Rfam assigns this 493-nucleotide RNA sequence from Saccharomyces pastorianus to the family "Fungal signal recognition particle RNA". On this family, see Wild et al., Curr Opin Struct Biol 2002: "Towards the structure of the mammalian signal recognition particle". Gene Ontology terms of the family: SRP-dependent cotranslational protein targeting to membrane, signal sequence recognition, signal recognition particle, endoplasmic reticulum targeting and signal recognition particle, plasma membrane targeting. Rfam 15.1 lists 748 matches to the family in 741 species. Taxonomically the source falls in Saccharomyces pastorianus (Eukaryota, Opisthokonta, Ascomycota, Saccharomyces).

RNA sequence: AUACGUUGAGAAUUCUGGCCGAGGAACAAAUCCUUCCUCGCGGCUAGACACGGAUUGCACGCCCUUUGGGCAAGGGAUAGUUCUCUAUUCCGCACCGUGCCCUGUUGUGGCAACCGUCUUUCCUCCGUCGUAAAUUUGUCCUGGGCAGAGCUGUCUGCCCGGAGGCGGGAGAGUCCGUUCUGAAGUGUCCCGGCUAUAAUAAAUCGAUCUUUGCGGGCAGCCCGUUGGCAGGAGGCGUGAGGAAUCCGUCUCUCUGUCUGGUGCGGCAAGGUAGUUCUGGGUCCUUAGGGGCUCCACCUUCACCGCUGUUAGGGGAGUUUUAUCCAGCGUCAGCAAAGGUGACCCGUGAUGGAGGCGGCCGGGAUAGCACAUAUCAGUCGGAUAAUUGUGCAAGUUGAUCGCUUCGGCGGUUUAAUUUGGCGGUGCCAUCAGGAUUUACUCGCACAUUGUGGCCGUUCCCUCGGGGAUGGAGUGUGUCCUGAACCAUAUUUUU
Numbered sequence: 001a002u003a004c005g006u007u008g009a010g011a012a013u014u015c016u017g018g019c020c021g022a023g024g025a026a027c028a029a030a031u032c033c034u035u036c037c038u039c040g041c042g043g044c045u046a047g048a049c050a051c052g053g054a055u056u057g058c059a060c061g062c063c064c065u066u067u068g069g070g071c072a073a074g075g076g077a078u079a080g081u082u083c084u085c086u087a088u089u090c091c092g093c094a095c096c097g098u099g100c101c102c103u104g105u106u107g108u109g110g111c112a113a114c115c116g117u118c119u120u121u122c123c124u125c126c127g128u129c130g131u132a133a134a135u136u137u138g139u140c141c142u143g144g145g146c147a148g149a150g151c152u153g154u155c156u157g158c159c160c161g162g163a164g165g166c167g168g169g170a171g172a173g174u175c176c177g178u179u180c181u182g183a184a185g186u187g188u189c190c191c192g193g194c195u196a197u198a199a200u201a202a203a204u205c206g207a208u209c210u211u212u213g214c215g216g217g218c219a220g221c222c223c224g225u226u227g228g229c230a231g232g233a234g235g236c237g238u239g240a241g242g243a244a245u246c247c248g249u250c251u252c253u254c255u256g257u258c259u260g261g262u263g264c265g266g267c268a269a270g271g272u273a274g275u276u277c278u279g280g281g282u283c284c285u286u287a288g289g290g291g292c293u294c295c296a297c298c299u300u301c302a303c304c305g306c307u308g309u310u311a312g313g314g315g316a317g318u319u320u321u322a323u324c325c326a327g328c329g330u331c332a333g334c335a336a337a338g339g340u341g342a343c344c345c346g347u348g349a350u351g352g353a354g355g356c357g358g359c360c361g362g363g364a365u366a367g368c369a370c371a372u373a374u375c376a377g378u379c380g381g382a383u384a385a386u387u388g389u390g391c392a393a394g395u396u397g398a399u400c401g402c403u404u405c406g407g408c409g410g411u412u413u414a415a416u417u418u419g420g421c422g423g424u425g426c427c428a429u430c431a432g433g434a435u436u437u438a439c440u441c442g443c444a445c446a447u448u449g450u451g452g453c454c455g456u457u458c459c460c461u462c463g464g465g466g467a468u469g470g471a472g473u474g475u476g477u478c479c480u481g482a483a484c485c486a487u488a489u490u491u492u493u
Stems, first nucleotide, its partner, number of pairs: 001477005007442003010437003108428004116424003120420002143160007177379001179377001181376003185370004189363007208353003211349002214346004222265001223263004227258003231253007239246002280285001295341006305334004314325003